The family of this 137-nucleotide sequence from Anolis carolinensis is "Small nucleolar RNA SNORA55". About the family: ACA55 is a member of the H/ACA class of snoRNA that guide the sites of modification of uridines to pseudouridines. Gene Ontology terms of the family: RNA processing and nucleolus. Rfam classes the family as an H/ACA-box small nucleolar RNA. It is one of the family's seed sequences.
[Rfam]
RNA sequence: GCACCUGAAUCUUUCCCAGGCCUCGCAAAACAAGUGGGGGUCUGGGGACAAGGGGUGCUAAAGCAAAGCAGAGGAAAUCCAGAUGGGCCGCCUCUUAUCUGCAGUGAGGGCCUGUCUCUACACCUUCUGCUACACUG
Numbered sequence: 001g002c003a004c005c006u007g008a009a010u011c012u013u014u015c016c017c018a019g020g021c022c023u024c025g026c027a028a029a030a031c032a033a034g035u036g037g038g039g040g041u042c043u044g045g046g047g048a049c050a051a052g053g054g055g056u057g058c059u060a061a062a063g064c065a066a067a068g069c070a071g072a073g074g075a076a077a078u079c080c081a082g083a084u085g086g087g088c089c090g091c092c093u094c095u096u097a098u099c100u101g102c103a104g105u106g107a108g109g110g111c112c113u114g115u116c117u118c119u120a121c122a123c124c125u126u127c128u129g130c131u132a133c134a135c136u137g
Stems, first nucleotide, its partner, number of pairs: 001058005013048007021040002068130005073124001081117008094108003